[Rfam]
This 116-nucleotide sequence from Tichowtungia aerotolerans belongs to the Rfam family "FMN riboswitch aptamer (RFN element)".
Taxonomically the source falls in Tichowtungia (Bacteria, Pseudomonadati, Tichowtungiia, Tichowtungiales).
RNA sequence: AUAUUUCUUCAGGGCAGGGUGAAAUUCCCGACCGGCGGUUACAGCCCGCGAGCCGAAAGGCAGAUGCAGUGCAAUUCUGCGGCCGACAGUUACAGUCUGGAUGAGAGAAGAACAAA
Numbered sequence: 001a002u003a004u005u006u007c008u009u010c011a012g013g014g015c016a017g018g019g020u021g022a023a024a025u026u027c028c029c030g031a032c033c034g035g036c037g038g039u040u041a042c043a044g045c046c047c048g049c050g051a052g053c054c055g056a057a058a059g060g061c062a063g064a065u066g067c068a069g070u071g072c073a074a075u076u077c078u079g080c081g082g083c084c085g086a087c088a089g090u091u092a093c094a095g096u097c098u099g100g101a102u103g104a105g106a107g108a109a110g111a112a113c114a115a116a
Stems, first nucleotide, its partner, number of pairs: 005112006017029003031096002033085002035049004044083002052061003065081005087099003